Description: This 61-nucleotide RNA from Lederbergia citrea belongs to the Rfam family "Ribosomal protein L13 leader". Lineage of the source: Bacteria > Bacillota > Caryophanales > Bacillaceae > Lederbergia. The base pairs follow the family's consensus structure, which was predicted with CMfinder. It is annotated as a cis-regulatory leader. This family is a putative r-protein leader autoregulatory structure found in B. subtilis and other low-GC Gram-positive bacteria. It is located in the 5' untranslated regions of mRNAs encoding the L13-S9 (rplM-rpsI) ribosomal protein operon.
RNA sequence: GGUAUUGUUUUUAAUCCCACGAUAAGCCCCGGAAACUUAUUGUGAUCAAAAUAAAUACGAA
Dot-bracket structure: .....(((((.(.....(((((((((.........)))))))))......).)))))....